RNA sequence: GAAGUUUAAGGUUGGCACCUUCAGGUUGCCACGGCACACGAAACAGCGUUGGUCCCCAUAUACCGCUAAACUGAAACUGCAGCGAAGCAGUUAGCAGAGCCAUGUAUAUCAGGUCUGUUUCGUGUGCUGAAUUGUUGACGCAUUUAUUUAUUGGUAUCGCAUGAACCCCAUCGUAAUUAAUCGGCUUCAACGGAAGCUGGGCUACACUUUUAAUC
Numbered sequence: 001g002a003a004g005u006u007u008a009a010g011g012u013u014g015g016c017a018c019c020u021u022c023a024g025g026u027u028g029c030c031a032c033g034g035c036a037c038a039c040g041a042a043a044c045a046g047c048g049u050u051g052g053u054c055c056c057c058a059u060a061u062a063c064c065g066c067u068a069a070a071c072u073g074a075a076a077c078u079g080c081a082g083c084g085a086a087g088c089a090g091u092u093a094g095c096a097g098a099g100c101c102a103u104g105u106a107u108a109u110c111a112g113g114u115c116u117g118u119u120u121c122g123u124g125u126g127c128u129g130a131a132u133u134g135u136u137g138a139c140g141c142a143u144u145u146a147u148u149u150a151u152u153g154g155u156a157u158c159g160c161a162u163g164a165a166c167c168c169c170a171u172c173g174u175a176a177u178u179a180a181u182c183g184g185c186u187u188c189a190a191c192g193g194a195a196g197c198u199g200g201g202c203u204a205c206a207c208u209u210u211u212a213a214u215c
Stems, first nucleotide, its partner, number of pairs: 013031005018025002032129015055113002058109006071097003075092006181200008

About this RNA:
The family of this 215-nucleotide sequence from Shigella flexneri is "rncO". This family represents a bacterial regulatory element (rncO) found in the rnc leader sequence. The rnc operon is negatively auto-regulated by transcript stability. rnc, the first gene in the operon codes for RNase III which cleaves the long rncO stem II leading to transcript degradation and a reduction in translation. The literature on the family includes a 1996 paper in RNA by Matsunaga et al., "RNase III autoregulation: structure and function of rncO, the posttranscriptional 'operator'".